The family of this 615-nucleotide sequence from Mycena sanguinolenta is "Nuclear RNase P". Rfam classes the family as a ribozyme. The match comes from Rfam's covariance-model search (57 bits). On this family, see Brown, Nucleic Acids Res 1999: "The Ribonuclease P Database". Lineage of the source: Eukaryota > Fungi > Basidiomycota > Agaricomycetes > Mycena. Ribonuclease P (RNase P) is a ubiquitous endoribonuclease, found in archaea, bacteria and eukarya as well as chloroplasts and mitochondria. The family has 116 seed sequences and 3,848 matches in Rfam 15.1. The family's consensus secondary structure is taken from published work.
[Rfam]
RNA sequence: ACAGCCCCAAAGCCGCGAUGCUCGUUCCACACAGGACUUUCAGUCCAUUUUCCGAGCGGGAAGGUCUGAGGCUUCUAGUCCCCUCGAUUGGUUCCAGAGGGACCCGGCUGUAACCGCCGAGCGACACACAAGAUAUGCGUCUGCGUUUCUUUCACCCAAAGAUCUUUCGAGGGAGGGAAAAUGGGAACGCGGGCUUGGAAUAUGUCGCGGGACUGGGUGGCUUUUUCUCUCUCACUCCUACUCUGCUUCUCUAUCGCGCCAUGCAUGUGGCCGCUUCGAGUGGCCACCGGGCGUGUCUGCGAUCACCUCGCAGGGCGUCCGCCGUCGAGCCUUGGUGCUCUGCCGUGAACGCGCUGCCCGCGACAGCUGAGUAUUGAUCUAGACGAUAACCCAGUUACGGUGACUCCUCGUGGUUUUGGGAGUCGUGGCUCUUAGCCACGCCUCUAAUCAGCCACAAUGGGACCACUAGGGCGGUGCGGACGCGGCAGGCGUACGAGGAGAUGCAGAGGCUCAUGGGGUCGGGAUGACCUGCCAUCCUUUAGUGCACUUUGCGGCACACGGUGCUCGUCGCGCGCACGACGCCGUGCAACUCGAUUCAGACUACUCUGAGGCUGU
Dot-bracket structure: ((((...((..(((((((.(((((.........(((((...)))))......)))))........[[[[[.......((((........(((((.....)))))((((.......)))).((((((..............((.................................................)).........)))))).))))...............................................................................................................................................................................................................................................................................................................................................))))))).((((((..................))))))........]]]]].......))...))))